[Rfam]
RNA sequence: AGUUGCAAAUUUCGUGAUGGUAUUACAAGCUCCUUGCCAUCCAAAAUAUGUGGCUGA
Numbered sequence: 001a002g003u004u005g006c007a008a009a010u011u012u013c014g015u016g017a018u019g020g021u022a023u024u025a026c027a028a029g030c031u032c033c034u035u036g037c038c039a040u041c042c043a044a045a046a047u048a049u050g051u052g053g054c055u056g057a
Stems, first nucleotide, its partner, number of pairs: 001055007009047002012044001014042001016041007